[Rfam]
RNA sequence: GACCUCUGGUUCCCUGUCCUAUCAGAUCUGAAUGUUGGUCUUGGUAAUCAUAACAGGAGGGCUAGCAAUACUGGAAAAAAAAAAAAAAAAGCUGGCUUCACAGGCUCUGGAGUCUGCCAUUCAAUAUGUGGGCUAGUUACAAACAAAU
Numbered sequence: 001g002a003c004c005u006c007u008g009g010u011u012c013c014c015u016g017u018c019c020u021a022u023c024a025g026a027u028c029u030g031a032a033u034g035u036u037g038g039u040c041u042u043g044g045u046a047a048u049c050a051u052a053a054c055a056g057g058a059g060g061g062c063u064a065g066c067a068a069u070a071c072u073g074g075a076a077a078a079a080a081a082a083a084a085a086a087a088a089a090a091g092c093u094g095g096c097u098u099c100a101c102a103g104g105c106u107c108u109g110g111a112g113u114c115u116g117c118c119a120u121u122c123a124a125u126a127u128g129u130g131g132g133c134u135a136g137u138u139a140c141a142a143a144c145a146a147a148u
Stems, first nucleotide, its partner, number of pairs: 003060005020046004025040004092136007108126002
Record summary: A member of the RNA family "Small nucleolar RNA SNORA61" from Erinaceus europaeus, 148 nucleotides long. Its family is annotated with nucleolus and RNA processing in the Gene Ontology. By type it is an H/ACA-box small nucleolar RNA. The source organism's lineage runs through Eukaryota, Teleostomi, Sarcopterygii, Boreoeutheria and Erinaceus. Rfam 15.1 lists 881 matches to the family in 421 species.